[Rfam]
The record is a 141-nucleotide RNA sequence from Tupaia belangeri, which matches "Small nucleolar RNA SNORA67" in Rfam. Rfam links the family to the GO terms nucleolus and RNA processing. U67 belongs to the H/ACA class of snoRNAs which are thought to guide the sites of modification of uridines to pseudouridines.
RNA sequence: AUCCAAGGUGAUUCCCUCUCCAAGGGGCUAUGUUAGUGCCCCUCUCAGGAAAGUAGCAACUUGGAAAAAAAUCUGGCAUGCCCAAAGUCUUUGGGGUCAGGGAUGCCAAUUUCCUUUGCCUGCCUUGGGCCGCCUACAUGU
Numbered sequence: 001a002u003c004c005a006a007g008g009u010g011a012u013u014c015c016c017u018c019u020c021c022a023a024g025g026g027g028c029u030a031u032g033u034u035a036g037u038g039c040c041c042c043u044c045u046c047a048g049g050a051a052a053g054u055a056g057c058a059a060c061u062u063g064g065a066a067a068a069a070a071a072u073c074u075g076g077c078a079u080g081c082c083c084a085a086a087g088u089c090u091u092u093g094g095g096g097u098c099a100g101g102g103a104u105g106c107c108a109a110u111u112u113c114c115u116u117u118g119c120c121u122g123c124c125u126u127g128g129g130c131c132g133c134c135u136a137c138a139u140g141u
Stems, first nucleotide, its partner, number of pairs: 002065006009058002019050003023043006076131001079129001081127001093114001094112003